[Rfam]
Rfam assigns this 89-nucleotide RNA from Paludisphaera borealis to the family "SAH (S-adenosyl-L-homocysteine) riboswitch aptamer". The match comes from Rfam's covariance-model search (44 bits). Pairs were carried over by alignment from the consensus structure, which is taken from published work.

RNA sequence: UUCGUCGAGGGGCGCUGCGACGGCACGCACGGGCGUUCCUGCCAGGCUCGCUGAGGUGGAUUAAUAACGUGCAACCGCGCCCGUUCAUC
Number, nucleotide and partner (000 for none) at each position: 001u000002u054003c053004g052005u000006c050007g049008a048009g000010g000011g000012g000013c000014g000015c000016u000017g000018c000019g000020a000021c041022g040023g039024c000025a037026c000027g000028c000029a000030c000031g000032g000033g000034c000035g000036u000037u025038c000039c023040u022041g021042c000043c000044a000045g000046g000047c000048u008049c007050g006051c000052u004053g003054a002055g000056g000057u000058g000059g000060a000061u000062u000063a000064a000065u000066a000067a000068c000069g000070u000071g000072c000073a000074a000075c000076c000077g000078c000079g000080c000081c000082c000083g000084u000085u000086c000087a000088u000089c000